A member of the RNA family "Yeast U1 spliceosomal RNA" from Vanderwaltozyma polyspora, 701 nucleotides long. From the family's description: U1 is a small nuclear RNA (snRNA) component of the spliceosome (involved in pre-mRNA splicing). Its 5' end forms complementary base pairs with the 5' splice junction, thus defining the 5' donor site of an intron. There are significant differences in sequence and secondary structure between metazoan and yeast U1 snRNAs, the latter being much longer (568 nucleotides as compared to 164 nucleotides in human). Nevertheless, secondary structure predictions suggest that all U1 snRNAs share a 'common core' consisting of helices I, II, the proximal region of III, and IV. This family represents the larger yeast sequences.
Nucleotides: 701
Base pairs, nucleotide, nucleotide: 010686011685012684013681014680015679017045018044019043020042021041022039023038024037025036046205047204048203049202050201051200052199053198054197056196057195058194059193060192210672211671212670213669214668215667218393219392220391221390222389223388224337225336226335227334228333229332230331235327236326237325238324242317243316244315245314246313247312248311249310250309346361347360348359349358350357366386367385368384369383370382371381372380
Number, partner (000 for none) and nucleotide at each position: 001000a002000u003000a004000c005000u006000u007000a008000c009000c010686u011685u012684a013681a014680g015679a016000u017045g018044u019043c020042a021041g022039g023038g024037g025036a026000g027000a028000u029000c030000a031000c032000u033000a034000a035000g036025u037024c038023c039022c040000a041021u042020u043019g044018g045017c046205c047204g048203g049202a050201u051200a052199u053198g054197c055000g056196c057195u058194u059193u060192c061000a062000u063000g064000u065000a066000a067000u068000u069000u070000u071000u072000a073000a074000u075000u076000a077000c078000g079000a080000u081000a082000g083000a084000g085000a086000u087000g088000c089000u090000a091000g092000g093000c094000a095000u096000u097000u098000a099000c100000c101000a102000g103000a104000a105000c106000u107000u108000a109000u110000c111000u112000u113000a114000a115000c116000u117000u118000a119000c120000g121000u122000u123000u124000a125000g126000u127000u128000u129000g130000g131000a132000g133000g134000g135000u136000u137000a138000g139000g140000u141000u142000c143000u144000g145000u146000u147000a148000u149000u150000u151000u152000u153000g154000a155000u156000g157000u158000a159000a160000g161000u162000u163000c164000u165000c166000u167000a168000g169000c170000a171000g172000a173000u174000u175000c176000a177000c178000g179000c180000a181000c182000a183000a184000a185000c186000u187000g188000u189000a190000g191000c192060g193059a194058a195057a196056g197054g198053u199052g200051u201050a202049u203048u204047u205046g206000c207000c208000g209000a210672c211671g212670u213669u214668u215667c216000g217000u218393u219392c220391c221390c222389u223388c224337a225336u226335c227334u228333c229332a230331a231000u232000u233000u234000a235327g236326g237325a238324u239000c240000g241000u242317a243316u244315u245314u246313u247312u248311u249310u250309g251000u252000a253000g254000u255000u256000u257000u258000u259000a260000u261000u262000c263000u264000u265000g266000u267000u268000g269000u270000u271000u272000g273000u274000u275000c276000c277000a278000u279000u280000u281000a282000u283000u284000u285000g286000g287000a288000g289000u290000g291000a292000g293000c294000a295000a296000c297000u298000u299000g300000a301000u302000g303000g304000a305000a306000u307000u308000u309250c310249a311248a312247g313246a314245a315244g316243a317242u318000a319000u320000u321000u322000g323000a324238a325237u326236c327235u328000u329000u330000a331230u332229u333228g334227a335226g336225g337224u338000c339000c340000u341000u342000u343000u344000u345000u346361c347360u348359u349358c350357u351000g352000c353000c354000u355000g356000g357350a358349g359348a360347a361346g362000u363000a364000u365000g366386g367385c368384a369383c370382u371381g372380a373000g374000u375000a376000c377000a378000a379000a380372u381371c382370a383369g384368u385367g386366c387000u388223g389222g390221g391220g392219g393218a394000g395000u396000u397000g398000g399000g400000g401000c402000c403000c404000u405000u406000c407000a408000a409000a410000u411000u412000g413000u414000a415000c416000c417000u418000a419000a420000a421000u422000u423000g424000a425000u426000u427000c428000u429000u430000u431000g432000c433000a434000u435000a436000u437000u438000g439000a440000a441000a442000u443000g444000g445000u446000u447000c448000u449000u450000c451000c452000a453000a454000u455000u456000a457000u458000g459000g460000u461000a462000a463000a464000u465000u466000u467000a468000c469000c470000u471000u472000c473000u474000a475000u476000u477000a478000u479000u480000g481000a482000u483000u484000c485000c486000u487000c488000a489000a490000g491000c492000a493000u494000u495000g496000u497000g498000g499000a500000c501000u502000g503000u504000a505000c506000u507000u508000g509000u510000c511000u512000u513000c514000g515000g516000a517000u518000g519000a520000g521000c522000a523000u524000u525000g526000u527000c528000u529000a530000u531000g532000g533000u534000a535000a536000c537000u538000u539000g540000a541000g542000a543000g544000a545000a546000g547000g548000u549000u550000u551000a552000a553000u554000g555000a556000u557000g558000u559000a560000a561000g562000g563000c564000u565000a566000u567000c568000u569000u570000u571000a572000u573000c574000u575000g576000g577000u578000a579000u580000g581000u582000a583000u584000c585000a586000u587000u588000u589000c590000u591000u592000u593000g594000u595000g596000a597000c598000a599000u600000g601000u602000u603000a604000u605000u606000u607000a608000a609000a610000u611000u612000c613000g614000u615000u616000u617000g618000g619000a620000u621000g622000a623000c624000a625000a626000g627000a628000u629000g630000a631000u632000a633000u634000c635000u636000a637000a638000u639000g640000g641000u642000g643000c644000a645000u646000g647000u648000a649000u650000u651000u652000u653000g654000a655000a656000g657000g658000u659000u660000c661000u662000u663000g664000a665000u666000a667215g668214g669213a670212a671211c672210g673000g674000g675000c676000g677000g678000g679015u680014c681013u682000u683000a684012u685011a686010a687000u688000u689000u690000u691000u692000g693000a694000u695000u696000u697000a698000u699000u700000u701000u
A reference for the family is Zwieb (1997), "The uRNA database", Nucleic Acids Res. Clan: U1 clan. It scores 183 bits against the family's covariance model.